[Rfam]
RNA sequence: GUGUGAUAAUGACAACUUGACUCUAAACUCAGCACUGAGAGGAGCAGGUUUGAUAACCAAACACAC
Numbered sequence: 001g002u003g004u005g006a007u008a009a010u011g012a013c014a015a016c017u018u019g020a021c022u023c024u025a026a027a028c029u030c031a032g033c034a035c036u037g038a039g040a041g042g043a044g045c046a047g048g049u050u051u052g053a054u055a056a057c058c059a060a061a062c063a064c065a066c
Base pairs, nucleotide, nucleotide: 001066002065003064004063005062014050015049016048017047018046019045022042023041028039029038030037
RNA: Selenocysteine insertion sequence 1
Organism: Amphiprion percula